[Rfam]
RNA sequence: ACUUUAAGCCUCUGAUGAAGCCUGAAUUAGUAGAGACAUUUGAAAAUGUUGAUGAAUGCCAACAGCUCAGAUGGAAAAGA
Numbered sequence: 001a002c003u004u005u006a007a008g009c010c011u012c013u014g015a016u017g018a019a020g021c022c023u024g025a026a027u028u029a030g031u032a033g034a035g036a037c038a039u040u041u042g043a044a045a046a047u048g049u050u051g052a053u054g055a056a057u058g059c060c061a062a063c064a065g066c067u068c069a070g071a072u073g074g075a076a077a078a079g080a
Stems, first nucleotide, its partner, number of pairs: 002079004
Dot-bracket structure: .((((......................................................................)))).
A member of the RNA family "Small nucleolar RNA SNORD74" from Tupaia belangeri, 80 nucleotides long. Rfam 15.1 lists 929 matches to the family in 615 species. It is annotated as a C/D-box small nucleolar RNA. Rfam links the family to the GO terms RNA processing and nucleolus.